[Rfam]
RNA sequence: ACACGUUCUCAGGGCGGGGUGAAAUUCCCCACCGGCGGUAAUGGAUAUCCGGGCCAUCCCGGUGUCCCAGCCCGCGAGCGCCACGACACCGCGGUGUCGUGGGUCAGCAGAUUCCGGUGUGAUUCCGGAGCCGACGGUCACAGUCCGGAUGAAAGAGAACGCGG
Numbered sequence: 001a002c003a004c005g006u007u008c009u010c011a012g013g014g015c016g017g018g019g020u021g022a023a024a025u026u027c028c029c030c031a032c033c034g035g036c037g038g039u040a041a042u043g044g045a046u047a048u049c050c051g052g053g054c055c056a057u058c059c060c061g062g063u064g065u066c067c068c069a070g071c072c073c074g075c076g077a078g079c080g081c082c083a084c085g086a087c088a089c090c091g092c093g094g095u096g097u098c099g100u101g102g103g104u105c106a107g108c109a110g111a112u113u114c115c116g117g118u119g120u121g122a123u124u125c126c127g128g129a130g131c132c133g134a135c136g137g138u139c140a141c142a143g144u145c146c147g148g149a150u151g152a153a154a155g156a157g158a159a160c161g162c163g164g
Base pairs, nucleotide, nucleotide: 004161005160006159007158008157009156010155017029018028019027031144032143033133034132035075036074037073038072070131071130078108079107113129114128115127116126117125135147136146137145
Dot-bracket structure: ...(((((((......(((.......))).[[((((((...............................[[))))..((...........................))....(((((.......)))))]])).(((.....]]))).......)))))))...
Record summary:
A member of the RNA family "FMN riboswitch aptamer (RFN element)" from Nocardia pseudobrasiliensis, 164 nucleotides long. Rfam 15.1 lists 6,230 matches to the family in 5,120 species. Lineage of the source: Bacteria > Bacillati > Actinomycetota > Nocardiaceae > Nocardia.